[Rfam]
RNA sequence: GGGUGUCCAGACCGCAUGGGGCGGCAGGACAGGUGUUGAUAGCGCAGGUCGGGCCGCCUGCG
Numbered sequence: 001g002g003g004u005g006u007c008c009a010g011a012c013c014g015c016a017u018g019g020g021g022c023g024g025c026a027g028g029a030c031a032g033g034u035g036u037u038g039a040u041a042g043c044g045c046a047g048g049u050c051g052g053g054c055c056g057c058c059u060g061c062g
Stems, first nucleotide, its partner, number of pairs: 005030004010025001012024003043062007
A member of the RNA family "nhaA-I RNA" from Delftia acidovorans, 62 nucleotides long. It is one of the family's seed sequences. Rfam's curators write: Acidobacteria, Alphaproteobacteria, Betaproteobacteria and Gammaproteobacteria, Verrucomicrobia, cand. division NC10.